[Rfam]
The family of this 120-nucleotide RNA sequence from Limosilactobacillus coleohominis is "FMN riboswitch aptamer (RFN element)". It scores 91 bits against the family's covariance model. The base pairs follow the family's consensus structure, which is taken from published work.
RNA sequence: GUUUGUCUUCAAGGCAGGGUGCAAUUCCCGACCGGCGGUAUAGCCCGCAACCCGUGAAAACGGUGGAAUCCAGUGUAAUUCUGGGUGCCGACAGUAAAGUCUGGUAGAUAGAAGAUUCGC
Numbered sequence: 001g002u003u004u005g006u007c008u009u010c011a012a013g014g015c016a017g018g019g020u021g022c023a024a025u026u027c028c029c030g031a032c033c034g035g036c037g038g039u040a041u042a043g044c045c046c047g048c049a050a051c052c053c054g055u056g057a058a059a060a061c062g063g064u065g066g067a068a069u070c071c072a073g074u075g076u077a078a079u080u081c082u083g084g085g086u087g088c089c090g091a092c093a094g095u096a097a098a099g100u101c102u103g104g105u106a107g108a109u110a111g112a113a114g115a116u117u118c119g120c
Stems, first nucleotide, its partner, number of pairs: 005116006017029003031100002033090002035048004043088002052063002068086001070084004092103003